RNA sequence: UUUGUGAGGGAUGUUGGCUGGCUCGGUGCAAUCACCUUUUCUUACGAUAUCGUGUAAAAAGGUGAUGGCAUCGGACCAGGCUUCAUUCCUUUCAAA
Numbered sequence: 001u002u003u004g005u006g007a008g009g010g011a012u013g014u015u016g017g018c019u020g021g022c023u024c025g026g027u028g029c030a031a032u033c034a035c036c037u038u039u040u041c042u043u044a045c046g047a048u049a050u051c052g053u054g055u056a057a058a059a060a061g062g063u064g065a066u067g068g069c070a071u072c073g074g075a076c077c078a079g080g081c082u083u084c085a086u087u088c089c090u091u092u093c094a095a096a
Stems, first nucleotide, its partner, number of pairs: 001096004006091008016081001018079004024073003
RNA: mir-166 microRNA precursor family
Organism: Lactuca saligna